[Rfam]
RNA: Small nucleolar RNA R44/J54/Z268 family
RNA sequence: UCUGCAAGUGAUGAUAAAUCAGACAGGGACAUCAGAACCCAUAGGGUUAUUAUUAUGAUGAUUUGUCGAUGGGAAUAUCUCUGAUGCACC
Numbered sequence: 001u002c003u004g005c006a007a008g009u010g011a012u013g014a015u016a017a018a019u020c021a022g023a024c025a026g027g028g029a030c031a032u033c034a035g036a037a038c039c040c041a042u043a044g045g046g047u048u049a050u051u052a053u054u055a056u057g058a059u060g061a062u063u064u065g066u067c068g069a070u071g072g073g074a075a076u077a078u079c080u081c082u083g084a085u086g087c088a089c090c
Stems, first nucleotide, its partner, number of pairs: 003088004